[Rfam]
Shown here is an 82-nucleotide sequence from Eleutherodactylus coqui, a member of the family "mir-1 microRNA precursor family". A reference for the family is Lee and Ambros (2001), "An extensive class of small RNAs in Caenorhabditis elegans", Science. Rfam links the family to the GO terms RISC complex and miRNA-mediated post-transcriptional gene silencing.
RNA sequence: GUGCAAAUAAAACGUUUCUUUAUUCCUCCAUAAUGUACCUGCCUGUAAACUAUGGAGGAAUAAAGAAACGUUUUAUUUGCAC
Numbered sequence: 001g002u003g004c005a006a007a008u009a010a011a012a013c014g015u016u017u018c019u020u021u022a023u024u025c026c027u028c029c030a031u032a033a034u035g036u037a038c039c040u041g042c043c044u045g046u047a048a049a050c051u052a053u054g055g056a057g058g059a060a061u062a063a064a065g066a067a068a069c070g071u072u073u074u075a076u077u078u079g080c081a082c
Base pairs, nucleotide, nucleotide: 007076008075009074010073011072012071013070014069015068016067017066018065019064020063021062022061023060024059025058028055029054030053031052032051